Annotation:
Rfam assigns this 91-nucleotide sequence from Rattus norvegicus to the family "mir-191 microRNA precursor family". The sequence is in the family's curated seed alignment. Pairs were carried over by alignment from the consensus structure, which was predicted with RNAalifold. On this family, see Kim et al., Proc Natl Acad Sci U S A 2004: "Identification of many microRNAs that copurify with polyribosomes in mammalian neurons".
[Rfam]
RNA sequence: GGCUGGACAGCGGGCAACGGAAUCCCAAAAGCAGCUGUUGUCUCCAGAGCAUUCCAGCUGCACUUGGAUUUCGUUCCCUGCUCUCCUGCCU
Numbered sequence: 001g002g003c004u005g006g007a008c009a010g011c012g013g014g015c016a017a018c019g020g021a022a023u024c025c026c027a028a029a030a031g032c033a034g035c036u037g038u039u040g041u042c043u044c045c046a047g048a049g050c051a052u053u054c055c056a057g058c059u060g061c062a063c064u065u066g067g068a069u070u071u072c073g074u075u076c077c078c079u080g081c082u083c084u085c086c087u088g089c090c091u
Stems, first nucleotide, its partner, number of pairs: 009082005017074009027065002031061007